[Rfam]
RNA sequence: AAUUUUAGGUAAUCGCGGCUAAUAAUUAGUUGAGGAAAGUCCAUGCUCGCACACGCUGAGACGCGUGUAGUGUUCGUGCUUAGCGAAACCAUAAGCUAAGGCAAUUUAAUUGACGGCAGUAAAACACACUAAGGUCUACGGACUAUGUGUUAGUAUACUUGAAAGUGCCACAGUGACGAGUUUCAUUGGAAACGAUGAAAGUGGAACGUUGGUAAACCCCUCGAGCGAGCAACCCAAACUUUGGUAGGGGCGCUUCUUCUAUACGUAAAUGAACGGAAGAAGAAGACACGAAAGUGUAGAUAGAUGGUUACCCGUCGAUUUAUCUGCCUAGGAUAAAUCGAGUGACAGAACAUGGCUUAUAAAA
Numbered sequence: 001a002a003u004u005u006u007a008g009g010u011a012a013u014c015g016c017g018g019c020u021a022a023u024a025a026u027u028a029g030u031u032g033a034g035g036a037a038a039g040u041c042c043a044u045g046c047u048c049g050c051a052c053a054c055g056c057u058g059a060g061a062c063g064c065g066u067g068u069a070g071u072g073u074u075c076g077u078g079c080u081u082a083g084c085g086a087a088a089c090c091a092u093a094a095g096c097u098a099a100g101g102c103a104a105u106u107u108a109a110u111u112g113a114c115g116g117c118a119g120u121a122a123a124a125c126a127c128a129c130u131a132a133g134g135u136c137u138a139c140g141g142a143c144u145a146u147g148u149g150u151u152a153g154u155a156u157a158c159u160u161g162a163a164a165g166u167g168c169c170a171c172a173g174u175g176a177c178g179a180g181u182u183u184c185a186u187u188g189g190a191a192a193c194g195a196u197g198a199a200a201g202u203g204g205a206a207c208g209u210u211g212g213u214a215a216a217c218c219c220c221u222c223g224a225g226c227g228a229g230c231a232a233c234c235c236a237a238a239c240u241u242u243g244g245u246a247g248g249g250g251c252g253c254u255u256c257u258u259c260u261a262u263a264c265g266u267a268a269a270u271g272a273a274c275g276g277a278a279g280a281a282g283a284a285g286a287c288a289c290g291a292a293a294g295u296g297u298a299g300a301u302a303g304a305u306g307g308u309u310a311c312c313c314g315u316c317g318a319u320u321u322a323u324c325u326g327c328c329u330a331g332g333a334u335a336a337a338u339c340g341a342g343u344g345a346c347a348g349a350a351c352a353u354g355g356c357u358u359a360u361a362a363a364a
Stems, first nucleotide, its partner, number of pairs: 004364003007360001008312007016032006037358003041355005046229005051068006074224003078220001079100006101114001102112004115219002118159004126150004133144003165217002167213003181200008233249003253285007286297004315341011